[Rfam]
RNA: Plastid-ycf2 5UTR RNA
Organism: Anisodus acutangulus
RNA sequence: GUGCAUCCAAUAGGAAUUGAACCUACUAAUUCACCACUAAUGAGUUGGGCACUUUAGCCAUUCAGCAGUGGAUGC
Numbered sequence: 001g002u003g004c005a006u007c008c009a010a011u012a013g014g015a016a017u018u019g020a021a022c023c024u025a026c027u028a029a030u031u032c033a034c035c036a037c038u039a040a041u042g043a044g045u046u047g048g049g050c051a052c053u054u055u056a057g058c059c060a061u062u063c064a065g066c067a068g069u070g071g072a073u074g075c
Stems, first nucleotide, its partner, number of pairs: 003075006011025004040069002044066006